[Rfam]
RNA: pemK RNA
RNA sequence: AUAAUGAUACUCCCGUACAGCCACAGCUUGAGCGUUCAGAGCGUCGCACGCAAUGGGUACGGCUACAUAAGAACUAUGCAGAGGUGAAACUCCUGUGG
Numbered sequence: 001a002u003a004a005u006g007a008u009a010c011u012c013c014c015g016u017a018c019a020g021c022c023a024c025a026g027c028u029u030g031a032g033c034g035u036u037c038a039g040a041g042c043g044u045c046g047c048a049c050g051c052a053a054u055g056g057g058u059a060c061g062g063c064u065a066c067a068u069a070a071g072a073a074c075u076a077u078g079c080a081g082a083g084g085u086g087a088a089a090c091u092c093c094u095g096u097g098g
Stems, first nucleotide, its partner, number of pairs: 012095001013062006063081002067077003082094003
Dot-bracket structure: ...........(((((((......................................))))))((..(((.....)))..))(((.......))))...